RNA: Small nucleolar RNA SNORD22
RNA sequence: UCCCAGUGAAGAGACAUUUACACGUCUUCCUCCUGUCCAAACCCCGGAGCCUGGGAAGGUGAACUGCUGGGGCUGGUGGGGGAGACAGGAUAUGUGCUCUGGGAGGAACUAUCUGAGGGGU
Numbered sequence: 001u002c003c004c005a006g007u008g009a010a011g012a013g014a015c016a017u018u019u020a021c022a023c024g025u026c027u028u029c030c031u032c033c034u035g036u037c038c039a040a041a042c043c044c045c046g047g048a049g050c051c052u053g054g055g056a057a058g059g060u061g062a063a064c065u066g067c068u069g070g071g072g073c074u075g076g077u078g079g080g081g082g083a084g085a086c087a088g089g090a091u092a093u094g095u096g097c098u099c100u101g102g103g104a105g106g107a108a109c110u111a112u113c114u115g116a117g118g119g120g121u
Stems, first nucleotide, its partner, number of pairs: 001120004